This 86-nucleotide RNA from Paenibacillus sp. GSMTC-2017 belongs to the Rfam family "Group II catalytic intron D1-D4-1". Group II introns are found in rRNA, tRNA and mRNA of organelles in fungi, plants and protists, and also in mRNA in bacteria. Rfam links the family to the GO term Group II intron splicing.
[Rfam]
RNA sequence: UAAGCACGACUGUGAGGGUGUGUUGAAUGUACAGAAGUCAGCAGAGGUCAUAGUACGCUGGCUGUUGCAACAGUUUGCGGAAGGAC
Numbered sequence: 001u002a003a004g005c006a007c008g009a010c011u012g013u014g015a016g017g018g019u020g021u022g023u024u025g026a027a028u029g030u031a032c033a034g035a036a037g038u039c040a041g042c043a044g045a046g047g048u049c050a051u052a053g054u055a056c057g058c059u060g061g062c063u064g065u066u067g068c069a070a071c072a073g074u075u076u077g078c079g080g081a082a083g084g085a086c
Base pairs, nucleotide, nucleotide: 001025002024004023005022006021007020008019010017011016038045039044047086048085049084056079057078058077062073063072064071065070